[Rfam]
RNA: FMN riboswitch aptamer (RFN element)
Organism: Agromyces intestinalis
RNA sequence: AACGUGCUCCGGGGUCGGUGCAAUUCCGAACCGGCGGUGAGAGUCCGCGAGCGUCGCACGUCAGGCCAUCCGGCCGGGCGGGCGAGGUUGAACCGGUGGAAUUCCGGUACCGACGGUGAAAGUCCGGAUGGGAGGCGCACGUG
Numbered sequence: 001a002a003c004g005u006g007c008u009c010c011g012g013g014g015u016c017g018g019u020g021c022a023a024u025u026c027c028g029a030a031c032c033g034g035c036g037g038u039g040a041g042a043g044u045c046c047g048c049g050a051g052c053g054u055c056g057c058a059c060g061u062c063a064g065g066c067c068a069u070c071c072g073g074c075c076g077g078g079c080g081g082g083c084g085a086g087g088u089u090g091a092a093c094c095g096g097u098g099g100a101a102u103u104c105c106g107g108u109a110c111c112g113a114c115g116g117u118g119a120a121a122g123u124c125c126g127g128a129u130g131g132g133a134g135g136c137g138c139a140c141g142u143g
Stems, first nucleotide, its partner, number of pairs: 003141005009135002016028003030123002032112002034048004043110002051088002092108005114126003